The family of this 348-nucleotide part of an RNA from Babesia ovis is "Eukaryotic large subunit ribosomal RNA".

RNA sequence: GCGGCGCGCCAGUAACUCCACCUAGUACGAGAGGAACAGUGGACUCGGAUACUUGGUUAAUGCGGUUGGCUGAGCAGCCAGUGCCGCGAGGCUACCAUCCGCCGGAUAAUGACUGAACGCCUCUAAGUCAGAAUCCGUGCUGAACCGCCGCCACUCACCGUCUGUGCGUUGCUGCGACGCGAUACUCUGCCCAGAAGCCACGCCUGCAUCGGCUUGCUCCGAAGCUCAAUUCCACGCGCACGGGCGAUGCAUCCUCCGUAGACGACCUUGACGCACCCGGGUAUUGUAAGCGCGAGAGUGGGCUUGCCUCACGAUCCGCUGAGAUUCAGCCCGGCGUGUCUGAUGUGU
Number, nucleotide and partner (000 for none) at each position: 001g151002c150003g149004g148005c147006g146007c000008g000009c000010c142011a141012g140013u139014a000015a045016c000017u043018c042019c041020a040021c039022c000023u000024a000025g000026u000027a000028c000029g000030a000031g000032a000033g000034g000035a000036a000037c000038a000039g021040u020041g019042g018043a017044c000045u015046c101047g100048g099049a098050u097051a000052c000053u000054u094055g093056g092057u000058u000059a000060a000061u088062g087063c086064g085065g084066u081067u080068g079069g078070c077071u076072g000073a000074g000075c000076a071077g070078c069079c068080a067081g066082u000083g000084c065085c064086g063087c062088g061089a000090g000091g000092c056093u055094a054095c000096c000097a050098u049099c048100c047101g046102c000103c137104g136105g135106a000107u000108a000109a000110u130111g129112a128113c127114u126115g000116a000117a000118c000119g000120c000121c000122u000123c000124u000125a000126a114127g113128u112129c111130a110131g000132a000133a000134u000135c105136c104137g103138u000139g013140c012141u011142g010143a000144a000145c000146c006147g005148c004149c003150g002151c001152c000153a000154c000155u000156c000157a000158c000159c000160g245161u244162c243163u242164g241165u240166g239167c238168g237169u236170u000171g000172c000173u000174g000175c000176g000177a000178c000179g000180c000181g000182a000183u000184a000185c000186u000187c000188u000189g000190c000191c000192c000193a000194g000195a000196a000197g000198c000199c000200a000201c000202g000203c000204c000205u000206g000207c000208a000209u000210c000211g000212g000213c000214u000215u000216g000217c000218u000219c000220c000221g000222a000223a000224g000225c000226u000227c000228a000229a000230u000231u000232c000233c000234a000235c000236g169237c168238g167239c166240a165241c164242g163243g162244g161245c160246g000247a000248u000249g346250c345251a344252u343253c342254c270255u000256c000257c000258g266259u000260a000261g000262a000263c000264g000265a000266c258267c000268u000269u000270g254271a000272c000273g000274c338275a337276c336277c000278c334279g332280g331281g330282u000283a325284u324285u000286g000287u000288a000289a000290g319291c318292g317293c000294g000295a315296g000297a000298g312299u311300g310301g309302g308303c000304u000305u000306g000307c000308c302309u301310c300311a299312c298313g000314a000315u295316c000317c292318g291319c290320u000321g000322a000323g000324a284325u283326u000327c000328a000329g000330c281331c280332c279333g000334g278335c000336g276337u275338g274339u000340c000341u000342g253343a252344u251345g250346u249347g000348u000
The organism belongs to Babesia, within Eukaryota. Rfam links the family to the GO terms ribosome and structural constituent of ribosome. A search with the family's covariance model found it, with a score of 2898 bits. Its Rfam clan is "LSU clan".